The record is a 98-nucleotide sequence from Caproiciproducens galactitolivorans, which matches "TPP riboswitch aptamer (THI element)" in Rfam. A search with the family's covariance model found it, with a score of 56 bits. The organism belongs to Caproiciproducens, within Bacteria. Pairs were carried over by alignment from the consensus structure, which is taken from published work.
RNA sequence: AUAAGAACACGGGGGGACUCUUCGGAGUUGAGAAGGUAGAACCUGACCCUUUGAACCUGUCAGUUAAUACUGUCGUAGGGAGCUUGAAUUGAGAAAUU
Numbered sequence: 001a002u003a004a005g006a007a008c009a010c011g012g013g014g015g016g017a018c019u020c021u022u023c024g025g026a027g028u029u030g031a032g033a034a035g036g037u038a039g040a041a042c043c044u045g046a047c048c049c050u051u052u053g054a055a056c057c058u059g060u061c062a063g064u065u066a067a068u069a070c071u072g073u074c075g076u077a078g079g080g081a082g083c084u085u086g087a088a089u090u091g092a093g094a095a096a097u098u
Base pairs, nucleotide, nucleotide: 007085010082011050012049013048014047016044017028018027019026020025035043036042037041056079057078058077059076061072062071063070